Shown here is a 511-nucleotide part of an RNA from Oreochromis niloticus, a member of the family "Eukaryotic large subunit ribosomal RNA". Lineage of the source: Eukaryota > Metazoa > African cichlids > Oreochromini > Oreochromis.
RNA sequence: CCCUCCGAAGUUUCCCUCAGGAUAGCUGGCGCUCAAGUCUCGCAGUUUUAUCUGGUAAAGCGAAUGAUUAGAGGUCUUGGGGCCGAAACGAUCUCAACCUAUUCUCAAACUUUAAAUGGGUAAGAAGCCCGGCUCGCUGGCUUGGAGCCGGGCGUGGAAUGCGAGCUGCCCAGUGGGCCACUUUUGGUAAGCAGAACUGGCGCUGCGGGAUGAACCGAACGCCGGGUUAAGGCGCCCGAUGCCGACGCUCAUCAGACCCCAGAAAAGGUGUUGGUUGAUAUAGACAGCAGGACGGUGGCCAUGGAAGUUGGAAUCCGCUAAGGAGUGUGUAACAACUCACCUGCCGAAUCAACUAGCCCUGAAAAUGGAUGGCGCUGGAGCGUCGGGCCCAUACCCGGCCGUCGCCGGCAAUAGGAGCCGCGAGGGCUACGCCGCGACGAGUAGGAGGGCCGCCGCGGUGAGCACGGAAGCCUAGGGCGCGAGCCCGGGUGGAGCCGCCGCGGGUGCAGAU
Numbered sequence: 001c002c003c004u005c006c007g008a009a010g011u012u013u014c015c016c017u018c019a020g021g022a023u024a025g026c027u028g029g030c031g032c033u034c035a036a037g038u039c040u041c042g043c044a045g046u047u048u049u050a051u052c053u054g055g056u057a058a059a060g061c062g063a064a065u066g067a068u069u070a071g072a073g074g075u076c077u078u079g080g081g082g083c084c085g086a087a088a089c090g091a092u093c094u095c096a097a098c099c100u101a102u103u104c105u106c107a108a109a110c111u112u113u114a115a116a117u118g119g120g121u122a123a124g125a126a127g128c129c130c131g132g133c134u135c136g137c138u139g140g141c142u143u144g145g146a147g148c149c150g151g152g153c154g155u156g157g158a159a160u161g162c163g164a165g166c167u168g169c170c171c172a173g174u175g176g177g178c179c180a181c182u183u184u185u186g187g188u189a190a191g192c193a194g195a196a197c198u199g200g201c202g203c204u205g206c207g208g209g210a211u212g213a214a215c216c217g218a219a220c221g222c223c224g225g226g227u228u229a230a231g232g233c234g235c236c237c238g239a240u241g242c243c244g245a246c247g248c249u250c251a252u253c254a255g256a257c258c259c260c261a262g263a264a265a266a267g268g269u270g271u272u273g274g275u276u277g278a279u280a281u282a283g284a285c286a287g288c289a290g291g292a293c294g295g296u297g298g299c300c301a302u303g304g305a306a307g308u309u310g311g312a313a314u315c316c317g318c319u320a321a322g323g324a325g326u327g328u329g330u331a332a333c334a335a336c337u338c339a340c341c342u343g344c345c346g347a348a349u350c351a352a353c354u355a356g357c358c359c360u361g362a363a364a365a366u367g368g369a370u371g372g373c374g375c376u377g378g379a380g381c382g383u384c385g386g387g388c389c390c391a392u393a394c395c396c397g398g399c400c401g402u403c404g405c406c407g408g409c410a411a412u413a414g415g416a417g418c419c420g421c422g423a424g425g426g427c428u429a430c431g432c433c434g435c436g437a438c439g440a441g442u443a444g445g446a447g448g449g450c451c452g453c454c455g456c457g458g459u460g461a462g463c464a465c466g467g468a469a470g471c472c473u474a475g476g477g478c479g480c481g482a483g484c485c486c487g488g489g490u491g492g493a494g495c496c497g498c499c500g501c502g503g504g505u506g507c508a509g510a511u
Stems, first nucleotide, its partner, number of pairs: 001449006011024001013022003028170004033165001046125008058113001059111002065107003070102001072100003077097006084090001127153009177201004182196005206217003221399005227393001231389003240386001242385001246382003266360003270357010287344005293317003299311002318322001323338001327336002400439006407433003451506001453503008462495002470490002476485003
Notes: It scores 2912 bits against the family's covariance model.